[Rfam]
RNA sequence: CCUGAACACUCAGGACGGGAUGUGAUUCUCGGGUGACCGAGAAUUGAACCACGCA
Numbered sequence: 001c002c003u004g005a006a007c008a009c010u011c012a013g014g015a016c017g018g019g020a021u022g023u024g025a026u027u028c029u030c031g032g033g034u035g036a037c038c039g040a041g042a043a044u045u046g047a048a049c050c051a052c053g054c055a
Stems, first nucleotide, its partner, number of pairs: 001014005017050002024045009

This 55-nucleotide RNA sequence from Halobacterium jilantaiense belongs to the Rfam family "eL15-Euryarchaeota ribosomal protein leader". A reference for the family is Eckert and Weinberg (2020), "Discovery of 20 novel ribosomal leader candidates in bacteria and archaea", BMC Microbiol. Taxonomically the source falls in Halobacterium (Archaea, Methanobacteriati, Methanobacteriota, Halobacteriaceae).